Shown here is a 133-nucleotide RNA from Castor canadensis, a member of the family "Small nucleolar RNA SNORA14". It is annotated as an H/ACA-box small nucleolar RNA. Rfam describes the family as follows. ACA14 is a member of the H/ACA class of snoRNA that guide the sites of modification of uridines to pseudouridines. A search with the family's covariance model found it, with a score of 121 bits. Pairs were carried over by alignment from the consensus structure, which was predicted with RNAfold.
RNA sequence: CUGCAUUCUUAAACCCUCUUGGCGGCUUCGCUCCCCGUGCUUCCAAGAUAUGAGUGAGUGCGAGAGGACCUGCGGGGAGUCCAAAGGCUGCGCUCCUCCCGUGGCUCAGCUUUAUUUCAUACCUGCGACAUCU
Number, nucleotide and partner (000 for none) at each position: 001c000002u000003g061004c060005a059006u058007u000008c054009u053010u052011a051012a000013a000014c000015c000016c000017u048018c047019u046020u045021g044022g043023c000024g041025g040026c039027u000028u000029c000030g000031c000032u000033c000034c000035c000036c000037g000038u000039g026040c025041u024042u000043c022044c021045a020046a019047g018048a017049u000050a000051u011052g010053a009054g008055u000056g000057a000058g006059u005060g004061c003062g000063a000064g000065a133066g132067g131068a000069c000070c000071u127072g126073c125074g124075g123076g122077g000078a000079g000080u000081c000082c000083a000084a113085a112086g111087g110088c109089u108090g107091c000092g105093c104094u000095c000096c101097u000098c000099c000100c000101g096102u000103g000104g093105c092106u000107c090108a089109g088110c087111u086112u085113u084114a000115u000116u000117u000118c000119a000120u000121a000122c076123c075124u074125g073126c072127g071128a000129c000130a000131u067132c066133u065